The family of this 251-nucleotide RNA from Medicago truncatula is "MIR2619 microRNA precursor family".
NCBI's taxonomy places the organism under Eukaryota, Embryophyta, Pentapetalae, Trifolieae, Medicago.
[Rfam]
RNA sequence: AAAUCGCCCCUAAGUAUUGACUUUUUUACAGUUUUGACCCCCCAGGUCAAUUUGACCAAGUCAAAGCUGACGUGGACGCCACAUGUGUAUUUAUUUUUUAUUUUUUAAUUAAUUAUCAAAAAAAUUAUUAUUAUUUUUUUAAUUAAAAAUAAAAUAAAAAUACACACGUGGCGUCCACGUGUGCAUUGACUUUGUCAAAAUUGACCUGGGAGGCCAAAACUGCAAAAAAGUCAAUACUUAGGAGGCGGUUU
Numbered sequence: 001a002a003a004u005c006g007c008c009c010c011u012a013a014g015u016a017u018u019g020a021c022u023u024u025u026u027u028a029c030a031g032u033u034u035u036g037a038c039c040c041c042c043c044a045g046g047u048c049a050a051u052u053u054g055a056c057c058a059a060g061u062c063a064a065a066g067c068u069g070a071c072g073u074g075g076a077c078g079c080c081a082c083a084u085g086u087g088u089a090u091u092u093a094u095u096u097u098u099u100a101u102u103u104u105u106u107a108a109u110u111a112a113u114u115a116u117c118a119a120a121a122a123a124a125u126u127a128u129u130a131u132u133a134u135u136u137u138u139u140u141a142a143u144u145a146a147a148a149a150u151a152a153a154a155u156a157a158a159a160a161u162a163c164a165c166a167c168g169u170g171g172c173g174u175c176c177a178c179g180u181g182u183g184c185a186u187u188g189a190c191u192u193u194g195u196c197a198a199a200a201u202u203g204a205c206c207u208g209g210g211a212g213g214c215c216a217a218a219a220c221u222g223c224a225a226a227a228a229a230g231u232c233a234a235u236a237c238u239u240a241g242g243a244g245g246c247g248g249u250u251u
Stems, first nucleotide, its partner, number of pairs: 001251002004248005011240017029222008038213002041210004070180002073177010